[Rfam]
RNA sequence: CCAGGGUUUUACAACCCUGGCUAGGACCUAUCGUCCCUAUGGGGACU
Dot-bracket structure: ((((((((....))))))))............(((((....))))).
RNA: Acido-Lenti-1 RNA
Organism: Membranihabitans marinus